[Rfam]
Source information:
Alphaproteobacteria transfer-messenger RNA: a 343-nucleotide RNA from Erythrobacter litoralis. For this family Rfam cites "Variations on the tmRNA gene" (Mao et al., RNA Biol, 2010). It is annotated as a non-coding RNA gene. Clan: tRNA clan.
RNA sequence: ACACUUCACAUUAAGCGCAGAACGCCUAUAUCGGAUGCGUCGGAGCGAUCCGACUAUGACGAUAAAUUGCAGCGUGCAAUAGGCACAACGGACCCGGGGGCAGUACCCGGCGGCUCCACCAUAAACCCCGGGAAACCGGGGGUUCUGACGGGGCCGAACCAGGAUCGACGUGGGCUGAAAAGCGUUGUUUUCGUCCGGGCUGAGUAACCCGUUAAAGGCUCAAAACCCAUAAGUGCCAACGAUAACGAAGCACUCGCUCUCGCUGCGUAAUUUUAAGGCCUAACGGCCUGAAUUUACAAAGCUAAAGCGCGGUUGGACCCACCGGGCAACAGAAGCGGAUUCC
Numbered sequence: 001a002c003a004c005u006u007c008a009c010a011u012u013a014a015g016c017g018c019a020g021a022a023c024g025c026c027u028a029u030a031u032c033g034g035a036u037g038c039g040u041c042g043g044a045g046c047g048a049u050c051c052g053a054c055u056a057u058g059a060c061g062a063u064a065a066a067u068u069g070c071a072g073c074g075u076g077c078a079a080u081a082g083g084c085a086c087a088a089c090g091g092a093c094c095c096g097g098g099g100g101c102a103g104u105a106c107c108c109g110g111c112g113g114c115u116c117c118a119c120c121a122u123a124a125a126c127c128c129c130g131g132g133a134a135a136c137c138g139g140g141g142g143u144u145c146u147g148a149c150g151g152g153g154c155c156g157a158a159c160c161a162g163g164a165u166c167g168a169c170g171u172g173g174g175c176u177g178a179a180a181a182g183c184g185u186u187g188u189u190u191u192c193g194u195c196c197g198g199g200c201u202g203a204g205u206a207a208c209c210c211g212u213u214a215a216a217g218g219c220u221c222a223a224a225a226c227c228c229a230u231a232a233g234u235g236c237c238a239a240c241g242a243u244a245a246c247g248a249a250g251c252a253c254u255c256g257c258u259c260u261c262g263c264u265g266c267g268u269a270a271u272u273u274u275a276a277g278g279c280c281u282a283a284c285g286g287c288c289u290g291a292a293u294u295u296a297c298a299a300a301g302c303u304a305a306a307g308c309g310c311g312g313u314u315g316g317a318c319c320c321a322c323c324g325g326g327c328a329a330c331a332g333a334a335g336c337g338g339a340u341u342c343c
Base pairs, nucleotide, nucleotide: 039054040053041052042051043050058195059194060193061192062191069188070187071186072185073184074183075182084174086172088171089170090169094110095109096108097107098106111156112155113154114153115152116151117150196211197210198209199208201222202221203220310324311323312322313321315341316340318338319337